[Rfam]
RNA: MIR1886 microRNA precursor family
Organism: Solanum lycopersicum
RNA sequence: UGAGAUGGAAUCAAUGGUUGGAUAUAUGAUUUUACGUUGAUUCCAUCUCAUG
Numbered sequence: 001u002g003a004g005a006u007g008g009a010a011u012c013a014a015u016g017g018u019u020g021g022a023u024a025u026a027u028g029a030u031u032u033u034a035c036g037u038u039g040a041u042u043c044c045a046u047c048u049c050a051u052g
Stems, first nucleotide, its partner, number of pairs: 001050016018029003